RNA sequence: UAUACAAAGCAUAUGAUGAGAAAGCACUGAAAUGCUUGUGAAGUGCAUUCAGUCCAAUGCAGAGCUUUGUGUC
Numbered sequence: 001u002a003u004a005c006a007a008a009g010c011a012u013a014u015g016a017u018g019a020g021a022a023a024g025c026a027c028u029g030a031a032a033u034g035c036u037u038g039u040g041a042a043g044u045g046c047a048u049u050c051a052g053u054c055c056a057a058u059g060c061a062g063a064g065c066u067u068u069g070u071g072u073c
Stems, first nucleotide, its partner, number of pairs: 002072009
The family of this 73-nucleotide sequence from Corythaixoides concolor is "Small nucleolar RNA SNORD69". A reference for the family is Huttenhofer et al. (2001), "RNomics: an experimental approach that identifies 201 candidates for novel, small, non-messenger RNAs in mouse", EMBO J. Gene Ontology terms of the family: RNA processing and nucleolus. Rfam describes the family as follows. snoRNA HBII-210 belongs to the C/D family of snoRNAs. It is the human orthologue of the mouse MBII-210 and is predicted to guide the 2'O-ribose methylation of large 28S rRNA on residue G4464. Rfam classes the family as a C/D-box small nucleolar RNA. The pairing is the family consensus, mapped onto this sequence. A search with the family's covariance model found it, with a score of 41 bits.